[Rfam]
The record is a 112-nucleotide RNA from Paenibacillus cremeus, which matches "epsC RNA" in Rfam. The match comes from Rfam's covariance-model search (110 bits).
RNA sequence: UGGUGAUGUCUCCUCGCCGUUAUCAAAGGGGGCACUCGGCCAUGCUGUGGGUUGAAAUAAACCUUAGACGCCAGUCGUCGAAGGUAUGGUGUGAGGAUGGGUUCGAUGCCCG
Numbered sequence: 001u002g003g004u005g006a007u008g009u010c011u012c013c014u015c016g017c018c019g020u021u022a023u024c025a026a027a028g029g030g031g032g033c034a035c036u037c038g039g040c041c042a043u044g045c046u047g048u049g050g051g052u053u054g055a056a057a058u059a060a061a062c063c064u065u066a067g068a069c070g071c072c073a074g075u076c077g078u079c080g081a082a083g084g085u086a087u088g089g090u091g092u093g094a095g096g097a098u099g100g101g102u103u104c105g106a107u108g109c110c111c112g
Stems, first nucleotide, its partner, number of pairs: 001019004007034007035095004039090008049064005067079004098112005